[Rfam]
RNA sequence: ACUUUGUGGUGAGUGUAAAUGAGAACUCAUAAAUUGUGUGCAGUCCAUCACCUCCUAUCUUGCAUUUUUUUCACUAAGAUUGGAGUUAAAUAUCAGCACUACAUGU
Numbered sequence: 001a002c003u004u005u006g007u008g009g010u011g012a013g014u015g016u017a018a019a020u021g022a023g024a025a026c027u028c029a030u031a032a033a034u035u036g037u038g039u040g041c042a043g044u045c046c047a048u049c050a051c052c053u054c055c056u057a058u059c060u061u062g063c064a065u066u067u068u069u070u071u072c073a074c075u076a077a078g079a080u081u082g083g084a085g086u087u088a089a090a091u092a093u094c095a096g097c098a099c100u101a102c103a104u105g106u
Base pairs, nucleotide, nucleotide: 038099039098040097041096043094050087052085053084054083055082058079059078060077061076
Small nucleolar RNA snoR97: a 106-nucleotide sequence from Solanum commersonii. Taxonomically the source falls in Solanum (Eukaryota, Viridiplantae, Gunneridae, Solaneae). Its family is annotated with RNA processing and nucleolus in the Gene Ontology. A search with the family's covariance model found it, with a score of 49 bits.